[Rfam]
This 99-nucleotide RNA from Insolitispirillum peregrinum belongs to the Rfam family "Glycine riboswitch aptamer". Taxonomically the source falls in Insolitispirillum (Bacteria, Pseudomonadati, Alphaproteobacteria, Novispirillaceae). This family represents the bacterial glycine riboswitch. Rfam links the family to the GO term glycine biosynthetic process.
RNA sequence: UAGAUCUCUGCGGGAGAGAUCGGGCCGCCCCGGCAGGCCCGACGCCGAAGGAGCAACCGCCUCCGGAAACUCUCAGGCAAACAGGACCGCAGAAGGACG
Numbered sequence: 001u002a003g004a005u006c007u008c009u010g011c012g013g014g015a016g017a018g019a020u021c022g023g024g025c026c027g028c029c030c031c032g033g034c035a036g037g038c039c040c041g042a043c044g045c046c047g048a049a050g051g052a053g054c055a056a057c058c059g060c061c062u063c064c065g066g067a068a069a070c071u072c073u074c075a076g077g078c079a080a081a082c083a084g085g086a087c088c089g090c091a092g093a094a095g096g097a098c099g
Stems, first nucleotide, its partner, number of pairs: 007093007020042007044078003047074002051072003058065001